[Rfam]
Nucleotides: 222
Base pairs, nucleotide, nucleotide: 001150002149003148004147005146015140016139017138018137027128028127029126031125032124033123037054038053039052040051041050055110056109057108058107059106060105151166152165153164154163
Number, partner (000 for none) and nucleotide at each position: 001150g002149u003148c004147g005146g006000u007000a008000g009000a010000c011000g012000a013000u014000c015140g016139g017138g018137u019000g020000g021000a022000a023000u024000a025000a026000g027128c028127a029126u030000u031125u032124c033123g034000g035000a036000c037054c038053c039052g040051g041050g042000g043000g044000c045000a046000g047000u048000a049000c050041c051040c052039c053038g054037g055110c056109g057108c058107c059106u060105c061000c062000a063000c064000c065000a066000g067000c068000a069000g070000c071000g072000g073000c074000g075000g076000g077000a078000c079000g080000c081000g082000a083000g084000c085000g086000g087000g088000g089000u090000u091000c092000c093000g094000c095000c096000g097000u098000u099000g100000c101000u102000g103000a104000u105060g106059g107058g108057g109056c110055g111000a112000a113000a114000c115000a116000g117000g118000a119000u120000c121000g122000a123033c124032g125031a126029g127028u128027g129000c130000g131000g132000u133000a134000a135000a136000g137018g138017c139016c140015c141000g142000g143000u144000u145000g146005c147004c148003g149002a150001u151166c152165g153164g154163u155000a156000u157000g158000a159000g160000a161000c162000c163154a164153c165152c166151g167000c168000a169000a170000c171000g172000g173000c174000u175000c176000a177000u178000u179000u180000c181000a182000c183000a184000a185000g186000u187000g188000c189000c190000a191000a192000c193000g194000a195000u196000a197000a198000c199000g200000a201000g202000g203000c204000g205000c206000u207000c208000g209000c210000a211000a212000u213000u214000g215000c216000u217000g218000c219000g220000u221000a222000a